[Rfam]
RNA sequence: GCACGCGCCGUGUCAACCGGACGUGGCGGUACAGGGCACAGGUUAGGUUUUUCCGGUUUCCCGCCUGGCCAGGGGAAUGGCUCCCACCCUUGUCCCGUCCGGCGC
Numbered sequence: 001g002c003a004c005g006c007g008c009c010g011u012g013u014c015a016a017c018c019g020g021a022c023g024u025g026g027c028g029g030u031a032c033a034g035g036g037c038a039c040a041g042g043u044u045a046g047g048u049u050u051u052u053c054c055g056g057u058u059u060c061c062c063g064c065c066u067g068g069c070c071a072g073g074g075g076a077a078u079g080g081c082u083c084c085c086a087c088c089c090u091u092g093u094c095c096c097g098u099c100c101g102g103c104g105c
Stems, first nucleotide, its partner, number of pairs: 006104004011023004025099003028095002033090004039067005046062001068081003